[Rfam]
RNA sequence: GUGAAGCUUACCUGACUUAUCAUCUCUCUUAUAGGGGCUCAGCAUUCACUGACUGCAAAAAGCAGAUUCCCUAGUUGUGUAUAGAGCUCAUUGUUUGUGUUGUUCUAAGGGACCUUGAAGACAUCA
Numbered sequence: 001g002u003g004a005a006g007c008u009u010a011c012c013u014g015a016c017u018u019a020u021c022a023u024c025u026c027u028c029u030u031a032u033a034g035g036g037g038c039u040c041a042g043c044a045u046u047c048a049c050u051g052a053c054u055g056c057a058a059a060a061a062g063c064a065g066a067u068u069c070c071c072u073a074g075u076u077g078u079g080u081a082u083a084g085a086g087c088u089c090a091u092u093g094u095u096u097g098u099g100u101u102g103u104u105c106u107a108a109g110g111g112a113c114c115u116u117g118a119a120g121a122c123a124u125c126a
Base pairs, nucleotide, nucleotide: 002048003047004046005045016042017041021037023035024034074113075112085101086100087099089097

The record is a 126-nucleotide RNA sequence from Sciurus carolinensis, which matches "Small nucleolar RNA SNORA70" in Rfam. The base pairs follow the family's consensus structure, which was predicted with PFOLD. Gene Ontology terms of the family: nucleolus and RNA processing. The match comes from Rfam's covariance-model search (60 bits). From the family's description: snoRNA U70 seems to be exclusive to mammals and is a member of the H/ACA class of snoRNA which contain H (ANANNA) and ACA box motifs. H/ACA box snoRNAs are involved in the conversion of uridines to pseudouridines (5-ribosyluracil) a constituent of structural RNAs (transfer, ribosomal, small nuclear, and small nucleolar). Rfam classes the family as an H/ACA-box small nucleolar RNA. Taxonomically the source falls in Sciurus (Eukaryota, Opisthokonta, Metazoa, Eumetazoa).